[Rfam]
RNA sequence: UCCGCCACGGAUGGCGGUGGUUCUUAGCAGCAGCGACGUUUUUGCGGUAGCAGAAACUCGCCAUCAACAAAUGUACACGGAUGUAUAUUUGUUGAUGAGG
Numbered sequence: 001u002c003c004g005c006c007a008c009g010g011a012u013g014g015c016g017g018u019g020g021u022u023c024u025u026a027g028c029a030g031c032a033g034c035g036a037c038g039u040u041u042u043u044g045c046g047g048u049a050g051c052a053g054a055a056a057c058u059c060g061c062c063a064u065c066a067a068c069a070a071a072u073g074u075a076c077a078c079g080g081a082u083g084u085a086u087a088u089u090u091g092u093u094g095a096u097g098a099g100g
Stems, first nucleotide, its partner, number of pairs: 002017005034060003038057008063096014
RNA: TD-2 RNA